[Rfam]
This 141-nucleotide RNA sequence from Bugula neritina belongs to the Rfam family "U4 spliceosomal RNA". Taxonomically the source falls in Bugula (Eukaryota, Opisthokonta, Bryozoa, Buguloidea). Rfam's curators write: U4 small nuclear RNA (U4 snRNA) is a component of the major U2-dependent spliceosome. The match comes from Rfam's covariance-model search (116 bits).

RNA sequence: AUCUUUGCGCAGCGGCAGUACCAUAGCCAGUGACGUUUAUCGGAGGCGUGGUUAUUGCUAGUUGAAAACUUAUACCAAUACCCUGCACUGACGACGUGAAAAACCGUCGGCACGUGCAAUUUAUGGAGGCCUCUACGGAGG
Numbered sequence: 001a002u003c004u005u006u007g008c009g010c011a012g013c014g015g016c017a018g019u020a021c022c023a024u025a026g027c028c029a030g031u032g033a034c035g036u037u038u039a040u041c042g043g044a045g046g047c048g049u050g051g052u053u054a055u056u057g058c059u060a061g062u063u064g065a066a067a068a069c070u071u072a073u074a075c076c077a078a079u080a081c082c083c084u085g086c087a088c089u090g091a092c093g094a095c096g097u098g099a100a101a102a103a104c105c106g107u108c109g110g111c112a113c114g115u116g117c118a119a120u121u122u123a124u125g126g127a128g129g130c131c132u133c134u135a136c137g138g139a140g141g
Base pairs, nucleotide, nucleotide: 020052021051022050023049024048026047027046028045034042035041085117086116087115089112090111092109093108094107095106096105130141131140132139133138